[Rfam]
RNA sequence: UGGGUCGGGCCGACGAUCGCUGCCGGGGCAACUCGGGAGAGGAAAGUCCGGGCUUCAUAGAGCGCGGUGGCGGGUAACGCCCGCCAUUCUGGGGAUUGCGUCGACUCCGCGACCAAUCUUUCGGGAUAGAGAAAGUGCAACAGAAAGUAUACCGCCGGCGGAUGUCCGAUCGAACGCCUUUGAUCGGACUAUCACACCGCAGGUAAGGGUGAAACGGCAGGGUAAGAGCCUACCAGCGGCGGGGUAACCCGUCGGCUCGGCAAACCUCACCGGAAGCAAAGCCAAACAGGGGGCAGGAGUGACUCGCUCCGUUACGACCUCCGGGUAGGCUGCUCGAGCCUGGGAGCAAUCCCUGGCCUAGAUAAAUGGUCGUCGCUUAGGGGAAACCCCAAGUACAAAACCCGGCUUACAACCCGACCCAUGAA
Numbered sequence: 001u002g003g004g005u006c007g008g009g010c011c012g013a014c015g016a017u018c019g020c021u022g023c024c025g026g027g028g029c030a031a032c033u034c035g036g037g038a039g040a041g042g043a044a045a046g047u048c049c050g051g052g053c054u055u056c057a058u059a060g061a062g063c064g065c066g067g068u069g070g071c072g073g074g075u076a077a078c079g080c081c082c083g084c085c086a087u088u089c090u091g092g093g094g095a096u097u098g099c100g101u102c103g104a105c106u107c108c109g110c111g112a113c114c115a116a117u118c119u120u121u122c123g124g125g126a127u128a129g130a131g132a133a134a135g136u137g138c139a140a141c142a143g144a145a146a147g148u149a150u151a152c153c154g155c156c157g158g159c160g161g162a163u164g165u166c167c168g169a170u171c172g173a174a175c176g177c178c179u180u181u182g183a184u185c186g187g188a189c190u191a192u193c194a195c196a197c198c199g200c201a202g203g204u205a206a207g208g209g210u211g212a213a214a215c216g217g218c219a220g221g222g223u224a225a226g227a228g229c230c231u232a233c234c235a236g237c238g239g240c241g242g243g244g245u246a247a248c249c250c251g252u253c254g255g256c257u258c259g260g261c262a263a264a265c266c267u268c269a270c271c272g273g274a275a276g277c278a279a280a281g282c283c284a285a286a287c288a289g290g291g292g293g294c295a296g297g298a299g300u301g302a303c304u305c306g307c308u309c310c311g312u313u314a315c316g317a318c319c320u321c322c323g324g325g326u327a328g329g330c331u332g333c334u335c336g337a338g339c340c341u342g343g344g345a346g347c348a349a350u351c352c353c354u355g356g357c358c359u360a361g362a363u364a365a366a367u368g369g370u371c372g373u374c375g376c377u378u379a380g381g382g383g384a385a386a387c388c389c390c391a392a393g394u395a396c397a398a399a400a401c402c403c404g405g406c407u408u409a410c411a412a413c414c415c416g417a418c419c420c421a422u423g424a425a
Base pairs, nucleotide, nucleotide: 001421002420003419004418005417006416007415008414009413012374013373014372015371016370017369018368020039021038023036024035025034026033027032044408045407046406048405049404050403051402052401053276054275055274056273060309061308062307063306065272066271067270068269069268070084071083072082073081074080085129086127087126088125089124090123091122092121093120094119130267131266135265136264137261138260152208153207154204155203156202158200159199160198161197216234217233219231220230221229236256237254238253239252240251241250242249243248280331281330282329283328289322290321291320292319293318300314301313302312303311338357339356340355342353343352344351345350
This 425-nucleotide sequence from Telmatocola sphagniphila belongs to the Rfam family "Bacterial RNase P class A". Rfam describes the family as follows. Ribonuclease P (RNase P) is a ubiquitous endoribonuclease, found in archaea, bacteria and eukarya as well as chloroplasts and mitochondria. The source organism's lineage runs through Bacteria, Planctomycetota, Gemmatales, Gemmataceae and Telmatocola.